The family of this 103-nucleotide RNA sequence from Phascolarctobacterium sp. CAG:266 is "SAM riboswitch aptamer (S box leader)". A search with the family's covariance model found it, with a score of 83 bits.

RNA sequence: UACUCAUCAAGAGCUGGUGGAGGGAUUGGCCCAAUGAAACCGCAGCAACCAUUGCAUUAGUGCAAACGGUGCUAAGUCCUGCGAGUUAAUCGAGAGAUGAGAA
Numbered sequence: 001u002a003c004u005c006a007u008c009a010a011g012a013g014c015u016g017g018u019g020g021a022g023g024g025a026u027u028g029g030c031c032c033a034a035u036g037a038a039a040c041c042g043c044a045g046c047a048a049c050c051a052u053u054g055c056a057u058u059a060g061u062g063c064a065a066a067c068g069g070u071g072c073u074a075a076g077u078c079c080u081g082c083g084a085g086u087u088a089a090u091c092g093a094g095a096g097a098u099g100a101g102a103a
Stems, first nucleotide, its partner, number of pairs: 001103001003101006013043001015042004022032003026081001028079002044073004049069002052065004077095001082092003